[Rfam]
RNA: TPP riboswitch aptamer (THI element)
Organism: Rhizobium deserti
RNA sequence: UGUGUGAGACAGGGGCGUCCGGCGGAAGCCGGGCUGAGAAGCACCCUUUGAACCUGAACCAGAUCAUGCUGGCGGAGGGAGUCGUUUGGGCAUGUCC
Dot-bracket structure: .....(.(((((((.((((((........)))))......)..)))).....(((...((((......))))...)))..))).)............